The record is a 66-nucleotide sequence from Agrilus planipennis, which matches "mir-29 microRNA precursor family" in Rfam.
This family represents the microRNA (miRNA) precursors mir-29.
The literature on the family includes a 2001 paper in Cell by Ambros, "microRNAs: tiny regulators with great potential".

RNA sequence: UGGGGGCUGUUUUCCUGUGGUGGAGAGAUGCUUUUAUUUUCUAGCACCAUAUGAAAUCAGUUCUUA
Numbered sequence: 001u002g003g004g005g006g007c008u009g010u011u012u013u014c015c016u017g018u019g020g021u022g023g024a025g026a027g028a029u030g031c032u033u034u035u036a037u038u039u040u041c042u043a044g045c046a047c048c049a050u051a052u053g054a055a056a057u058c059a060g061u062u063c064u065u066a
Base pairs, nucleotide, nucleotide: 001066002065003064004063005061007060008059009058011056012055013054014053017050018049019048020047021046022045026042027041028040